[Rfam]
RNA sequence: UGGAAAUGAUGAAAUAGAGAUAAUUGGAUGUCUCUCUGAAUGGAGUGUGUGUGAUAAAUGGAAUUUCAACCAAGUCAAACUGGGGGUGGGGUGUGGGGAAUGUGUGUGUGCACGCGUGUAUAGAAAAGGCUUUAAACGGGGGCACUGAUAAUGCAGUGCUGAUUCCGGAGUGCAUCUGAGGCAUGUUGUUAAGUUCUCGGGUGCCACUUUACAACAUCGCCAAUGAUUAAAGCCCAAAACAAGCCCACCAAGACAAGCCUAGGCAUCCUAAAUCUCUAACAGGUUCAUUAAUGAAAGUGAUCCUGUGAUCUGAUCUGA
Numbered sequence: 001u002g003g004a005a006a007u008g009a010u011g012a013a014a015u016a017g018a019g020a021u022a023a024u025u026g027g028a029u030g031u032c033u034c035u036c037u038g039a040a041u042g043g044a045g046u047g048u049g050u051g052u053g054a055u056a057a058a059u060g061g062a063a064u065u066u067c068a069a070c071c072a073a074g075u076c077a078a079a080c081u082g083g084g085g086g087u088g089g090g091g092u093g094u095g096g097g098g099a100a101u102g103u104g105u106g107u108g109u110g111c112a113c114g115c116g117u118g119u120a121u122a123g124a125a126a127a128g129g130c131u132u133u134a135a136a137c138g139g140g141g142g143c144a145c146u147g148a149u150a151a152u153g154c155a156g157u158g159c160u161g162a163u164u165c166c167g168g169a170g171u172g173c174a175u176c177u178g179a180g181g182c183a184u185g186u187u188g189u190u191a192a193g194u195u196c197u198c199g200g201g202u203g204c205c206a207c208u209u210u211a212c213a214a215c216a217u218c219g220c221c222a223a224u225g226a227u228u229a230a231a232g233c234c235c236a237a238a239a240c241a242a243g244c245c246c247a248c249c250a251a252g253a254c255a256a257g258c259c260u261a262g263g264c265a266u267c268c269u270a271a272a273u274c275u276c277u278a279a280c281a282g283g284u285u286c287a288u289u290a291a292u293g294a295a296a297g298u299g300a301u302c303c304u305g306u307g308a309u310c311u312g313a314u315c316u317g318a
Base pairs, nucleotide, nucleotide: 001317002316003315004314184216185215186214187213188212189211191209193204194203196201
Background: The record is a 318-nucleotide sequence from Aptenodytes forsteri, which matches "Small Cajal body-specific RNA 7" in Rfam. Rfam links the family to the GO terms RNA processing and nucleolus. Rfam classes the family as a small Cajal body RNA. The source organism's lineage runs through Eukaryota, Chordata, Dipnotetrapodomorpha, Neoaves and Aptenodytes.